[Rfam]
RNA: Small nucleolar RNA snoR2/U65
Organism: Cuscuta australis
Nucleotides: 134
Base pairs, nucleotide, nucleotide: 002060003059004058005057006056007054008052012048013047014046015045016044019041020040021039023034024033025032077126078125079124080123081122089117090116096114098112099111
Number, partner (000 for none) and nucleotide at each position: 001000g002060g003059u004058u005057c006056g007054u008052g009000c010000c011000a012048c013047g014046u015045c016044g017000a018000c019041g020040g021039u022000a023034g024033c025032u026000u027000u028000c029000c030000c031000g032025a033024g034023c035000a036000u037000u038000g039021a040020c041019c042000g043000g044016c045015g046014a047013u048012g049000c050000u051000a052008c053000g054007a055000a056006c057005g058004a059003a060002c061000c062000g063000a064000a065000a066000c067000c068000a069000a070000a071000g072000u073000g074000u075000u076000u077126u078125c079124g080123c081122a082000u083000u084000a085000u086000a087000u088000a089117g090116g091000a092000a093000g094000c095000u096114a097000u098112g099111g100000a101000u102000g103000g104000a105000u106000a107000u108000a109000u110000u111099c112098u113000a114096u115000u116090c117089c118000u119000c120000u121000g122081u123080g124079c125078g126077a127000u128000a129000a130000c131000a132000u133000c134000u